Description: A member of the RNA family "mir-395 microRNA precursor family" from Olea europaea, 107 nucleotides long. mir-395 was identified in both Arabidopsis thaliana and Oryza sativa computationally and was later experimentally verified. mir-395 is thought to target mRNAs coding for ATP sulphurylases. The mature sequence is excised from the 3' arm of the hairpin. NCBI's taxonomy places the organism under Eukaryota, lamiids, Lamiales, Olea, Olea europaea. Rfam links the family to the GO terms RISC complex and miRNA-mediated post-transcriptional gene silencing. The base pairs follow the family's consensus structure, which was predicted with PFOLD.
RNA sequence: GUUUCAUUUGGAGUUCCCUCAAAGCACUUCAGAUACUACAAGAGUCCCUUAUUUGUUAAGGGUACCAAUAGUCUCACUGAAGUGUUUGGGGGAACUCUAAGCGUCAU
Number, nucleotide and partner (000 for none) at each position: 001g000002u000003u000004u000005c103006a000007u101008u100009u099010g000011g097012a096013g095014u094015u093016c092017c091018c090019u089020c088021a000022a087023a086024g085025c084026a083027c082028u081029u080030c079031a078032g077033a000034u000035a074036c000037u000038a000039c000040a000041a000042g000043a000044g000045u000046c000047c000048c000049u000050u000051a000052u000053u000054u000055g000056u000057u000058a000059a000060g000061g000062g000063u000064a000065c000066c000067a000068a000069u000070a000071g000072u000073c000074u035075c000076a000077c032078u031079g030080a029081a028082g027083u026084g025085u024086u023087u022088g020089g019090g018091g017092g016093a015094a014095c013096u012097c011098u000099a009100a008101g007102c000103g005104u000105c000106a000107u000